[Rfam]
RNA sequence: UAUUCUCAUGUGGAAGCUGUUUUGAGUACAACCCUAGUACAACCCAUUUUCCCAUGACCUUAUGUACUUCGUACAUUACUGCUAGUCCCCAUGAAUAUUGUACA
Numbered sequence: 001u002a003u004u005c006u007c008a009u010g011u012g013g014a015a016g017c018u019g020u021u022u023u024g025a026g027u028a029c030a031a032c033c034c035u036a037g038u039a040c041a042a043c044c045c046a047u048u049u050u051c052c053c054a055u056g057a058c059c060u061u062a063u064g065u066a067c068u069u070c071g072u073a074c075a076u077u078a079c080u081g082c083u084a085g086u087c088c089c090c091a092u093g094a095a096u097a098u099u100g101u102a103c104a
Base pairs, nucleotide, nucleotide: 006094007093008092009091010090012087013086016082017081019079022036024034026032027031037058038057045056046055062076063075064074065073066072
Mitochondrial DNA control region secondary structure A: a 104-nucleotide RNA from Symphalangus syndactylus.
The base pairs follow the family's consensus structure, which is taken from published work.
Rfam's curators put it in the seed alignment.
Rfam classes the family as an antisense RNA.
For this family Rfam cites "Evidence for variable selective pressures at a large secondary structure of the human mitochondrial DNA control region" (Pereira et al., Mol Biol Evol, 2008).
The family has 53 seed sequences and 795 matches in Rfam 15.1.